[Rfam]
Shown here is a 181-nucleotide RNA sequence from Mycolicibacterium hassiacum, a member of the family "Actinobacteria sRNA Ms_IGR-5". By type it is a small RNA. NCBI's taxonomy places the organism under Bacteria, Bacillati, Mycobacteriales, Mycobacteriaceae, Mycolicibacterium hassiacum.

RNA sequence: ACACAGGGAAGGAGGUGGUCCGACAAAUUGAUCGACUCAUGGACAUGUGAGGUGGCUGCGAGCUAGCAGCGCCAGGGGACGGUCCUCCGCCUGCGCGCGCCGGCGAAUCCCCCGCAGCCACCCGGCCCCCGAGCCCCUCGGUCUUGUCCAACCAGGAACUACGGCUCGGGGGCCGCUCCAU
Numbered sequence: 001a002c003a004c005a006g007g008g009a010a011g012g013a014g015g016u017g018g019u020c021c022g023a024c025a026a027a028u029u030g031a032u033c034g035a036c037u038c039a040u041g042g043a044c045a046u047g048u049g050a051g052g053u054g055g056c057u058g059c060g061a062g063c064u065a066g067c068a069g070c071g072c073c074a075g076g077g078g079a080c081g082g083u084c085c086u087c088c089g090c091c092u093g094c095g096c097g098c099g100c101c102g103g104c105g106a107a108u109c110c111c112c113c114g115c116a117g118c119c120a121c122c123c124g125g126c127c128c129c130c131g132a133g134c135c136c137c138u139c140g141g142u143c144u145u146g147u148c149c150a151a152c153c154a155g156g157a158a159c160u161a162c163g164g165c166u167c168g169g170g171g172g173c174c175g176c177u178c179c180a181u
Stems, first nucleotide, its partner, number of pairs: 015059005062104003066100002069098004074092003123175013137156002140153003